[Rfam]
RNA sequence: UGGCGGGCUAGUCCGGGUAGCUCGGCGUUACCUGUAACCUAAAAUCGCCGAUAUGUAGGGGACGAAGCCAAGGGAAGGUGCCUCAAUCAGGCACGGACCUGUGAACUCAACUGAGAAGCUCCGUCCUGCUUGGACGAUGUAGAUACAGGGGCUUGCUGGAGAGCAGGUCUCUGUGUCCUCACUGCGGGAACCGGUCAAGGCCCGGAAGGGAGCAGACCAACUGCGGGCAUACGUCGCUUGCAGGGUCACGGAGUGGAGACGAGAUCACAGAUCAUCCGUGUCUGUGCGAGACAUCGACCUGCGGCAUGCCUGCCG
Numbered sequence: 001u002g003g004c005g006g007g008c009u010a011g012u013c014c015g016g017g018u019a020g021c022u023c024g025g026c027g028u029u030a031c032c033u034g035u036a037a038c039c040u041a042a043a044a045u046c047g048c049c050g051a052u053a054u055g056u057a058g059g060g061g062a063c064g065a066a067g068c069c070a071a072g073g074g075a076a077g078g079u080g081c082c083u084c085a086a087u088c089a090g091g092c093a094c095g096g097a098c099c100u101g102u103g104a105a106c107u108c109a110a111c112u113g114a115g116a117a118g119c120u121c122c123g124u125c126c127u128g129c130u131u132g133g134a135c136g137a138u139g140u141a142g143a144u145a146c147a148g149g150g151g152c153u154u155g156c157u158g159g160a161g162a163g164c165a166g167g168u169c170u171c172u173g174u175g176u177c178c179u180c181a182c183u184g185c186g187g188g189a190a191c192c193g194g195u196c197a198a199g200g201c202c203c204g205g206a207a208g209g210g211a212g213c214a215g216a217c218c219a220a221c222u223g224c225g226g227g228c229a230u231a232c233g234u235c236g237c238u239u240g241c242a243g244g245g246u247c248a249c250g251g252a253g254u255g256g257a258g259a260c261g262a263g264a265u266c267a268c269a270g271a272u273c274a275u276c277c278g279u280g281u282c283u284g285u286g287c288g289a290g291a292c293a294u295c296g297a298c299c300u301g302c303g304g305c306a307u308g309c310c311u312g313c314c315g
Stems, first nucleotide, its partner, number of pairs: 001315008011063004015033007038059004043054001067305003072300003077295004082290003088284010099270006106263003111258002118254007125244005132237001133235004137230003142177016182226006193218004201210003
The record is a 315-nucleotide RNA from Methanosalsum zhilinae, which matches "Archaeal signal recognition particle RNA" in Rfam. Rfam links the family to the GO terms signal recognition particle, plasma membrane targeting and SRP-dependent cotranslational protein targeting to membrane, signal sequence recognition. The family's RNA type in Rfam is non-coding RNA gene. The family's consensus secondary structure is taken from published work. A reference for the family is Batey et al. (2001), "Structural and energetic analysis of RNA recognition by a universally conserved protein from the signal recognition particle", J Mol Biol.